[Rfam]
RNA: TPP riboswitch aptamer (THI element)
RNA sequence: CUUUGGCUUUAGGGGUAUUCUGAAAAGAAUUGAGAGAGUCCCUUUGAACCUGACGCGGUUAGUACCGUCGUAGGGAAAAGCGCAGGAACACCG
Numbered sequence: 001c002u003u004u005g006g007c008u009u010u011a012g013g014g015g016u017a018u019u020c021u022g023a024a025a026a027g028a029a030u031u032g033a034g035a036g037a038g039u040c041c042c043u044u045u046g047a048a049c050c051u052g053a054c055g056c057g058g059u060u061a062g063u064a065c066c067g068u069c070g071u072a073g074g075g076a077a078a079a080g081c082g083c084a085g086g087a088a089c090a091c092c093g
Stems, first nucleotide, its partner, number of pairs: 006081005011043004016037001017030005049074004055068004